[Rfam]
Rfam assigns this 53-nucleotide RNA sequence from a Parvibaculaceae bacterium to the family "ffh sRNA". Rfam classes the family as a small RNA.

RNA sequence: GGAGGCCGGGAUCACCACCUGUCGGCGAGGGUUCGCUCACAGGUGCUUUUGUG
Numbered sequence: 001g002g003a004g005g006c007c008g009g010g011a012u013c014a015c016c017a018c019c020u021g022u023c024g025g026c027g028a029g030g031g032u033u034c035g036c037u038c039a040c041a042g043g044u045g046c047u048u049u050u051g052u053g
Stems, first nucleotide, its partner, number of pairs: 016045007025036004
Pairs were carried over by alignment from the consensus structure, which is taken from published work. NCBI's taxonomy places the organism under Bacteria, Pseudomonadota, Alphaproteobacteria, Hyphomicrobiales, Parvibaculaceae.